ROOL RNA: a 586-nucleotide RNA.

[Rfam]
RNA sequence: UGCUUUGUUAUGGACACAAGAUAACUCGGUGCAGAUUGGUUAGUCACCAUGCCGAGAUUAUAUGAACGUUGAGUAUUGACAUAGAAGGAUACUUUUGUGUAGGUACUUUUGGUAUAUUGUGAGAUAUAUCAAGUAGACGGAAACUGUCAAUAACAAAUAUAAGUGCAAAACAUUAUCGCAGCAAAAAGUAGAUUUCAGGACGUUGGUAUAAUAGACGCUCACUCGGUGAGAAGAAUCUUGAGGCUUGCUAGGUGGAACUGUGCAAGAUUGUAGAGAAAAUCCAAAUAAGCCAAUUGUGUCGUUGAUACGCAGAAAUGUGUGUAUAAGCCCUGUUUAUCGUCCGAGUAGCCCAAAUCGACAUUAAAAUAAAACACAUAUAAUAGAAGAAUUUAUAAACAAAAAAUCUUUUCUGAAUGACAUGGGUGAAAGAUAGAGGUAAUCAGUCCUCUUUAUUCUUGAUGCUUAAUGCAUUGCUAUAGAAGUAAUGAGGUAGCUCCUUAUUGCUCAGACUAUAGCAGAUAAUGACUGAAUAUUGGUACGAUUUUGUGUUUGUAAGGCGAAGGUCUGUUUUGUGUUCAUUAUAAAG
Numbered sequence: 001u002g003c004u005u006u007g008u009u010a011u012g013g014a015c016a017c018a019a020g021a022u023a024a025c026u027c028g029g030u031g032c033a034g035a036u037u038g039g040u041u042a043g044u045c046a047c048c049a050u051g052c053c054g055a056g057a058u059u060a061u062a063u064g065a066a067c068g069u070u071g072a073g074u075a076u077u078g079a080c081a082u083a084g085a086a087g088g089a090u091a092c093u094u095u096u097g098u099g100u101a102g103g104u105a106c107u108u109u110u111g112g113u114a115u116a117u118u119g120u121g122a123g124a125u126a127u128a129u130c131a132a133g134u135a136g137a138c139g140g141a142a143a144c145u146g147u148c149a150a151u152a153a154c155a156a157a158u159a160u161a162a163g164u165g166c167a168a169a170a171c172a173u174u175a176u177c178g179c180a181g182c183a184a185a186a187a188g189u190a191g192a193u194u195u196c197a198g199g200a201c202g203u204u205g206g207u208a209u210a211a212u213a214g215a216c217g218c219u220c221a222c223u224c225g226g227u228g229a230g231a232a233g234a235a236u237c238u239u240g241a242g243g244c245u246u247g248c249u250a251g252g253u254g255g256a257a258c259u260g261u262g263c264a265a266g267a268u269u270g271u272a273g274a275g276a277a278a279a280u281c282c283a284a285a286u287a288a289g290c291c292a293a294u295u296g297u298g299u300c301g302u303u304g305a306u307a308c309g310c311a312g313a314a315a316u317g318u319g320u321g322u323a324u325a326a327g328c329c330c331u332g333u334u335u336a337u338c339g340u341c342c343g344a345g346u347a348g349c350c351c352a353a354a355u356c357g358a359c360a361u362u363a364a365a366a367u368a369a370a371a372c373a374c375a376u377a378u379a380a381u382a383g384a385a386g387a388a389u390u391u392a393u394a395a396a397c398a399a400a401a402a403a404u405c406u407u408u409u410c411u412g413a414a415u416g417a418c419a420u421g422g423g424u425g426a427a428a429g430a431u432a433g434a435g436g437u438a439a440u441c442a443g444u445c446c447u448c449u450u451u452a453u454u455c456u457u458g459a460u461g462c463u464u465a466a467u468g469c470a471u472u473g474c475u476a477u478a479g480a481a482g483u484a485a486u487g488a489g490g491u492a493g494c495u496c497c498u499u500a501u502u503g504c505u506c507a508g509a510c511u512a513u514a515g516c517a518g519a520u521a522a523u524g525a526c527u528g529a530a531u532a533u534u535g536g537u538a539c540g541a542u543u544u545u546g547u548g549u550u551u552g553u554a555a556g557g558c559g560a561a562g563g564u565c566u567g568u569u570u571u572g573u574g575u576u577c578a579u580u581a582u583a584a585a586g
Stems, first nucleotide, its partner, number of pairs: 009581002013577002019571003025056005037049004058162006072107006079100009108133011136148005169551002181537002184534001187533001188527001191338003196332004201327001202294006218230004236276004241271001244266004249260003253283004297360005306321005342429001348424005409509004433449001435447002451521003454470001472518001475515001479511001482505001484502007555566004
From the family's description: Firmicutes, Fusobacteria (1 example), Tenericutes (1 example). It is annotated as a small RNA. Pairs were carried over by alignment from the consensus structure, which is taken from published work.